RNA sequence: UGGCGCCCAAUGUGGGACUGGAUACAGAGGAUCCAGUGAGGGAAGACGACGUCCUAAAGGAACAUUCCACAACAAUUUUUCACUCUGGACUCGUUGUGGGAACCUGCCUCGGCUACAACCAGAGGUAAGUACAGACAUCUGAUUAUGGGACAAGAAUUAAGCAGGCAUGAACUUUAUGUUAAGCAGUUACAAGAAGCCUUGAAGAUGCAAGGAGUAAAGGUUAAAAUAGAGGAUCUAUUAAGAUUCUUUGAAUUCAUUAAGGAAACAUGUCCUU
Numbered sequence: 001u002g003g004c005g006c007c008c009a010a011u012g013u014g015g016g017a018c019u020g021g022a023u024a025c026a027g028a029g030g031a032u033c034c035a036g037u038g039a040g041g042g043a044a045g046a047c048g049a050c051g052u053c054c055u056a057a058a059g060g061a062a063c064a065u066u067c068c069a070c071a072a073c074a075a076u077u078u079u080u081c082a083c084u085c086u087g088g089a090c091u092c093g094u095u096g097u098g099g100g101a102a103c104c105u106g107c108c109u110c111g112g113c114u115a116c117a118a119c120c121a122g123a124g125g126u127a128a129g130u131a132c133a134g135a136c137a138u139c140u141g142a143u144u145a146u147g148g149g150a151c152a153a154g155a156a157u158u159a160a161g162c163a164g165g166c167a168u169g170a171a172c173u174u175u176a177u178g179u180u181a182a183g184c185a186g187u188u189a190c191a192a193g194a195a196g197c198c199u200u201g202a203a204g205a206u207g208c209a210a211g212g213a214g215u216a217a218a219g220g221u222u223a224a225a226a227u228a229g230a231g232g233a234u235c236u237a238u239u240a241a242g243a244u245u246c247u248u249u250g251a252a253u254u255c256a257u258u259a260a261g262g263a264a265a266c267a268u269g270u271c272c273u274u
Base pairs, nucleotide, nucleotide: 006030007029012025013024014023036047037046082126083125084124085122086121091117095111096110098108099107134151138149139148140147141146158201159200160199161197162196208250209249210248211247212246213245214244215243218236219235220234221233222232259274260273261272262271263270
The family of this 274-nucleotide RNA sequence from Nannospalax galili is "Mason-Pfizer monkey virus packaging signal". Taxonomically the source falls in Nannospalax (Eukaryota, Bilateria, Deuterostomia, Boreoeutheria). Pairs were carried over by alignment from the consensus structure, which was predicted with PFOLD. A search with the family's covariance model found it, with a score of 161 bits.